Shown here is a 93-nucleotide RNA from Cephalotus follicularis, a member of the family "Small nucleolar RNA snoR26". By type it is a C/D-box small nucleolar RNA. The base pairs follow the family's consensus structure, which was predicted with WAR. Rfam links the family to the GO terms nucleolus and RNA processing.
[Rfam]
RNA sequence: GAAGUAUCGGUGAUGAGAGAAUCCAAAAUGUUAUCCUUGCACUUUGAUUGCUAGUGAAGAAACUUAUGGGGAAUAAAUAUCUCUGAGAUGCUC
Numbered sequence: 001g002a003a004g005u006a007u008c009g010g011u012g013a014u015g016a017g018a019g020a021a022u023c024c025a026a027a028a029u030g031u032u033a034u035c036c037u038u039g040c041a042c043u044u045u046g047a048u049u050g051c052u053a054g055u056g057a058a059g060a061a062a063c064u065u066a067u068g069g070g071g072a073a074u075a076a077a078u079a080u081c082u083c084u085g086a087g088a089u090g091c092u093c
Base pairs, nucleotide, nucleotide: 003092004091005090006089007088008087